[Rfam]
RNA sequence: CCGGCUCCGGUUCACCUCCCGCGAACGACGAGGACCCGGCGGCC
Number, nucleotide and partner (000 for none) at each position: 001c000002c000003g044004g043005c042006u000007c039008c038009g037010g036011u000012u000013c000014a000015c033016c032017u031018c030019c000020c027021g026022c000023g000024a000025a000026c021027g020028a000029c000030g018031a017032g016033g015034a000035c000036c010037c009038g008039g007040c000041g000042g005043c004044c003
This 44-nucleotide sequence from Saccharothrix algeriensis belongs to the Rfam family "L31-Actinobacteria ribosomal protein leader". The organism belongs to Saccharothrix, within Bacteria. It scores 48 bits against the family's covariance model. Pairs were carried over by alignment from the consensus structure, which is taken from published work.